[Rfam]
RNA sequence: GAACUAAAGGAGAAGUUCAUUCCCCUUUAGCUUAGCUCUCAUCGGCGUAUACGUUGGCGUUGUCUCUUUGGUCGGAGCCGCUUGCGUAUACGCUUUUUCUUUUU
Numbered sequence: 001g002a003a004c005u006a007a008a009g010g011a012g013a014a015g016u017u018c019a020u021u022c023c024c025c026u027u028u029a030g031c032u033u034a035g036c037u038c039u040c041a042u043c044g045g046c047g048u049a050u051a052c053g054u055u056g057g058c059g060u061u062g063u064c065u066c067u068u069u070g071g072u073c074g075g076a077g078c079c080g081c082u083u084g085c086g087u088a089u090a091c092g093c094u095u096u097u098u099c100u101u102u103u104u
Stems, first nucleotide, its partner, number of pairs: 004030007012022003044094011056082004062078001064077004

The family of this 104-nucleotide sequence from Bacillus subtilis is "Bacillus SR6 antitoxin". For this family Rfam cites "Bacillus subtilis Type I antitoxin SR6 Promotes Degradation of Toxin yonT mRNA and Is Required to Prevent Toxic yoyJ Overexpression" (Reif et al., Toxins (Basel), 2018). Rfam links the family to the GO terms toxin-antitoxin complex, mRNA binding and toxin catabolic process. The organism belongs to Bacillus subtilis subsp. subtilis, within Bacteria. By type it is an antisense RNA.